[Rfam]
Rfam assigns this 62-nucleotide RNA sequence from Nomascus leucogenys to the family "U7 small nuclear RNA". From the family's description: Animal histone pre-mRNAs are spliced by a different mechanism than nuclear pre-mRNAs and self-splicing introns. This processing involves the U7 snRNP, which contains only one RNA species: U7. The 5' end of U7 RNA is thought to base-pair to a conserved spacer element downstream of the cleavage site in histone pre-mRNA. This family contains a number of annotated U7 pseudogenes. A search with the family's covariance model found it, with a score of 66 bits. Taxonomically the source falls in Nomascus (Eukaryota, Gnathostomata, Amniota, Boreoeutheria).
RNA sequence: CAGUGUUACAGCUCUUCUAAAAUUUGACUAGCAGGUUUUCCGGUCUUUGCUGGAAAGCCCUU
Dot-bracket structure: .................................(((((((((((....)))))))))))...